[Rfam]
RNA: int-alpA RNA
Organism: Candidatus Accumulibacter sp. SK-11
RNA sequence: GCCGCGCCUGGAUCGGCCAAUCGAAAACCGGUCACCUUCACCCGGCUGACGUGGCAUUCCUAUUCGAGG
Numbered sequence: 001g002c003c004g005c006g007c008c009u010g011g012a013u014c015g016g017c018c019a020a021u022c023g024a025a026a027a028c029c030g031g032u033c034a035c036c037u038u039c040a041c042c043c044g045g046c047u048g049a050c051g052u053g054g055c056a057u058u059c060c061u062a063u064u065c066g067a068g069g
Base pairs, nucleotide, nucleotide: 001055002054003053004052005051006050008048011022012021013020028045029044030043031042035069036068037067038066040064